The family of this 72-nucleotide RNA from a Desulfobacteraceae bacterium is "tRNA". A search with the family's covariance model found it, with a score of 61 bits. The source organism's lineage runs through Bacteria, Thermodesulfobacteriota, Desulfobacteria, Desulfobacterales and Desulfobacteraceae. The family's RNA type in Rfam is transfer RNA. The family is grouped with related families in Rfam's "tRNA clan".
RNA sequence: GGGCGGUUAACUCAGAGGGAGAGUGCUACCUUCACACGGUAGAAGUCACUGGUUCAAUCCCAGUACCGCCUA
Numbered sequence: 001g002g003g004c005g006g007u008u009a010a011c012u013c014a015g016a017g018g019g020a021g022a023g024u025g026c027u028a029c030c031u032u033c034a035c036a037c038g039g040u041a042g043a044a045g046u047c048a049c050u051g052g053u054u055c056a057a058u059c060c061c062a063g064u065a066c067c068g069c070c071u072a
Base pairs, nucleotide, nucleotide: 001071002070003069004068005067006066007065010024011023012022013021026042027041028040029039030038048064049063050062051061052060